[Rfam]
The family of this 134-nucleotide RNA sequence from Oryctolagus cuniculus is "Small nucleolar RNA SNORA47". By type it is an H/ACA-box small nucleolar RNA. Its family is annotated with nucleolus and RNA processing in the Gene Ontology. A reference for the family is Huttenhofer et al. (2001), "RNomics: an experimental approach that identifies 201 candidates for novel, small, non-messenger RNAs in mouse", EMBO J. Pairs were carried over by alignment from the consensus structure, which was predicted with WAR. Rfam's curators put it in the seed alignment.
RNA sequence: UGGAGGACUGAGAAGGUGAGCAGCGCCUGCCAUGCUGCCUCCCACCGGUAAGGACCUCCAACAGCAAAGGGCUGCCUGGCAGAGGCCGCCCCUCUGCCACCUCCGGGGGGCAGCGCUGCGCCAGCCCACAGUCU
Numbered sequence: 001u002g003g004a005g006g007a008c009u010g011a012g013a014a015g016g017u018g019a020g021c022a023g024c025g026c027c028u029g030c031c032a033u034g035c036u037g038c039c040u041c042c043c044a045c046c047g048g049u050a051a052g053g054a055c056c057u058c059c060a061a062c063a064g065c066a067a068a069g070g071g072c073u074g075c076c077u078g079g080c081a082g083a084g085g086c087c088g089c090c091c092c093u094c095u096g097c098c099a100c101c102u103c104c105g106g107g108g109g110g111c112a113g114c115g116c117u118g119c120g121c122c123a124g125c126c127c128a129c130a131g132u133c134u
Base pairs, nucleotide, nucleotide: 002059003058004057005056006055015046016045017044018043019040020038021037022036023035024034078126079125080124084121087118088117094113095112096111097110098109100108101107